[Rfam]
Nucleotides: 084
Stems, first nucleotide, its partner, number of pairs: 009076003013072002018067002030061003036056008
Number, partner (000 for none) and nucleotide at each position: 001000g002000u003000u004000u005000a006000g007000c008000c009076c010075a011074g012000a013072u014071u015000g016000a017000a018067g019066c020000a021000u022000u023000u024000g025000u026000u027000u028000g029000a030061g031060c032059u033000c034000u035000u036056u037055u038054u039053u040052g041051c042050c043049u044000u045000u046000u047000u048000c049043a050042g051041g052040c053039a054038a055037a056036a057000a058000a059032a060031g061030c062000g063000a064000g065000u066019g067018c068000u069000g070000a071014a072013a073000g074011c075010u076009g077000g078000a079000a080000a081000u082000a083000g084000c

This 84-nucleotide sequence from Polaribacter vadi belongs to the Rfam family "Flavo-1 RNA". Lineage of the source: Bacteria > Bacteroidota > Flavobacteriia > Flavobacteriales > Polaribacter. The base pairs follow the family's consensus structure, which is taken from published work. The match comes from Rfam's covariance-model search (47 bits).